RNA sequence: GCGGCGCUUAAAAAGAAGCGGCGCCUUUUUUUAGCUCUGCUAAAAGGCGCCACUUCUUUUUAAGUGCCGC
Numbered sequence: 001g002c003g004g005c006g007c008u009u010a011a012a013a014a015g016a017a018g019c020g021g022c023g024c025c026u027u028u029u030u031u032u033a034g035c036u037c038u039g040c041u042a043a044a045a046g047g048c049g050c051c052a053c054u055u056c057u058u059u060u061u062a063a064g065u066g067c068c069g070c
Base pairs, nucleotide, nucleotide: 004067005066006065007064008063009062010061011060012059015056016055017054018053020051021050022049023048024047025046027044028043029042
Dot-bracket structure: ...(((((((((..((((.((((((.(((............))).)))))).))))..)))))))))...